[Rfam]
RNA sequence: ACCCCACAAAUUAAGCCGACAUUUGAAAAUAUACUUUGUUCAAGUGUGGUUCAUAGUGGGAACAUGAAUGCAGUUAUGUGUAGGGUUGUGACCUAAUCUAUAGUCAACAUCCCAAGGAAAUACUGGGACA
Number, nucleotide and partner (000 for none) at each position: 001a000002c000003c000004c000005c000006a000007c000008a000009a000010a000011u000012u000013a000014a000015g000016c000017c000018g000019a047020c046021a045022u044023u043024u042025g041026a040027a000028a000029a000030u000031a000032u000033a000034c000035u000036u000037u000038g000039u000040u026041c025042a024043a023044g022045u021046g020047u019048g000049g000050u000051u000052c000053a000054u000055a000056g000057u000058g000059g000060g000061a000062a000063c000064a000065u000066g000067a000068a000069u000070g000071c125072a124073g123074u122075u000076a000077u000078g000079u000080g000081u000082a000083g113084g112085g111086u000087u109088g108089u107090g105091a104092c103093c000094u000095a000096a000097u000098c000099u000100a000101u000102a000103g092104u091105c090106a000107a089108c088109a087110u000111c085112c084113c083114a000115a000116g000117g000118a000119a000120a000121u000122a074123c073124u072125g071126g000127g000128a000129c000130a000
Rfam assigns this 130-nucleotide sequence from Folsomia candida to the family "Small nucleolar RNA snoR639/H1". A search with the family's covariance model found it, with a score of 49 bits. About the family: snoR639 or snoH1 belongs to the H/ACA class of snoRNAs which are thought to guide the sites of modification of uridines to pseudouridines. snoH1 is found in an intron of the mfl gene in Drosophila. Rfam classes the family as an H/ACA-box small nucleolar RNA. On this family, see Giordano et al., J Cell Biol 1999: "minifly, a Drosophila gene required for ribosome biogenesis".